This 168-nucleotide RNA from Zingiber officinale belongs to the Rfam family "small nucleolar RNA snoR135".
The source organism's lineage runs through Eukaryota, Streptophytina, Mesangiospermae, Petrosaviidae and Zingiber.
By type it is an H/ACA-box small nucleolar RNA.
The family has 6 seed sequences and 837 matches in Rfam 15.1.
The literature on the family includes a 2009 paper in Nucleic Acids Res by Chen and Wu, "Mining small RNA sequencing data: a new approach to identify small nucleolar RNAs in Arabidopsis".
The match comes from Rfam's covariance-model search (53 bits).

RNA sequence: AAGGCAGGAAAGUAUGAAUCGGUGCAAUGCUCAUCUACAAUGCAUUUCUAGCAGAAAGUGUUUAAUCUCCUGCAAUAGUACUGAUUUCUGGGGCACAUGGGCAGUUGUGACUACCUCUAAUUUUUAUGCAGUUGUUUGUCUCAACAAUCGAUCAUUUUCCUCAUAUUU
Number, nucleotide and partner (000 for none) at each position: 001a000002a000003g000004g073005c072006a071007g070008g069009a000010a000011a000012g000013u000014a045015u044016g043017a000018a041019u040020c000021g000022g000023u000024g000025c000026a000027a000028u000029g000030c000031u000032c000033a000034u000035c000036u000037a000038c000039a000040a019041u018042g000043c016044a015045u014046u000047u000048c000049u000050a000051g000052c000053a000054g000055a000056a000057a000058g000059u000060g000061u000062u000063u000064a000065a000066u000067c000068u000069c008070c007071u006072g005073c004074a000075a000076u000077a000078g000079u000080a000081c000082u000083g000084a000085u000086u000087u000088c000089u000090g162091g161092g160093g159094c000095a157096c000097a155098u154099g153100g152101g000102c000103a000104g145105u144106u143107g142108u000109g000110a000111c000112u000113a000114c000115c000116u000117c000118u000119a000120a000121u000122u000123u000124u000125u000126a000127u000128g000129c000130a000131g000132u000133u000134g000135u000136u000137u000138g000139u000140c000141u000142c107143a106144a105145c104146a000147a000148u000149c000150g000151a000152u100153c099154a098155u097156u000157u095158u000159c093160c092161u091162c090163a000164u000165a000166u000167u000168u000